The family of this 71-nucleotide RNA sequence from Oppiella nova is "mir-2 microRNA precursor family".
The literature on the family includes a 2001 paper in Science by Lee and Ambros, "An extensive class of small RNAs in Caenorhabditis elegans".
Gene Ontology terms of the family: RISC complex and miRNA-mediated post-transcriptional gene silencing.
Pairs were carried over by alignment from the consensus structure, which was predicted with PFOLD.
Taxonomically the source falls in Oppiella (Eukaryota, Acari, Brachypylina, Oppiidae).
[Rfam]
RNA sequence: CCACCCGUCAAAGAGGCAGUGAUCUGUUUCACCAAAUAGUCUUCAUAUCACAGCCGCUUUGAUCAGUGGAA
Numbered sequence: 001c002c003a004c005c006c007g008u009c010a011a012a013g014a015g016g017c018a019g020u021g022a023u024c025u026g027u028u029u030c031a032c033c034a035a036a037u038a039g040u041c042u043u044c045a046u047a048u049c050a051c052a053g054c055c056g057c058u059u060u061g062a063u064c065a066g067u068g069g070a071a
Stems, first nucleotide, its partner, number of pairs: 007063007015055003019051004025047003